[Rfam]
The family of this 82-nucleotide sequence from Citrobacter rodentium is "Peptidase-S11 RNA". Rfam's curators put it in the seed alignment. The family's consensus secondary structure is taken from published work.
RNA sequence: GCUAUGAUUCUUUCGCUAGCUUGAGUAAAUUCCUGCUCCAGCGGUGCGUGUUUCCCCACGCGUGAACCAUUUUCUGAAGUCU
Numbered sequence: 001g002c003u004a005u006g007a008u009u010c011u012u013u014c015g016c017u018a019g020c021u022u023g024a025g026u027a028a029a030u031u032c033c034u035g036c037u038c039c040a041g042c043g044g045u046g047c048g049u050g051u052u053u054c055c056c057c058a059c060g061c062g063u064g065a066a067c068c069a070u071u072u073u074c075u076g077a078a079g080u081c082u
Stems, first nucleotide, its partner, number of pairs: 015045003019042003023038005046061005